[Rfam]
RNA sequence: CUCGGAGGAGGGGUGGUCCCUCAGACCAGACUGCUAGAGGGUGCAGGCCAGGCCAAGGGGCCACACCAGUGCACG
Numbered sequence: 001c002u003c004g005g006a007g008g009a010g011g012g013g014u015g016g017u018c019c020c021u022c023a024g025a026c027c028a029g030a031c032u033g034c035u036a037g038a039g040g041g042u043g044c045a046g047g048c049c050a051g052g053c054c055a056a057g058g059g060g061c062c063a064c065a066c067c068a069g070u071g072c073a074c075g
Stems, first nucleotide, its partner, number of pairs: 004072001006070001010067002013064009024053001026051001029048001031046004
The family of this 75-nucleotide RNA from Myotis lucifugus is "mir-9193 microRNA precursor family". The match comes from Rfam's covariance-model search (57 bits). NCBI's taxonomy places the organism under Eukaryota, Chordata, Amniota, Vespertilionidae, Myotis.